A member of the RNA family "Potassium channel RNA editing signal" from Amphibalanus amphitrite, 114 nucleotides long. The family's RNA type in Rfam is cis-regulatory element. This family represents a group of sequences related to the human potassium channel Kv1.1 hairpin element which directs the efficient modification of an adenosine to inosine by an adenosine deaminase acting on RNA (ADAR). The ADAR modification causes an isoleucine/valine recoding event which lies in the ion-conducting pore of the potassium channel. The family's consensus secondary structure is taken from published work. Rfam links the family to the GO term adenosine to inosine editing. For this family Rfam cites "Control of human potassium channel inactivation by editing of a small mRNA hairpin" (Bhalla et al., Nat Struct Mol Biol, 2004).
[Rfam]
RNA sequence: GUCGGCUACGGCGACAUGGUGCCCAAGACGUACGUGGGGAUGCUGGUGGGCGCGCUGUGCGCCAUCGCCGGCGUGCUCACCAUCUCGCUGCCCGUGCCCGUUAUCGUCUCCAAC
Dot-bracket structure: ((.((..((((.(((..(..((..............((.(........(((.........)))..........).))................)).)..))).))))..)).))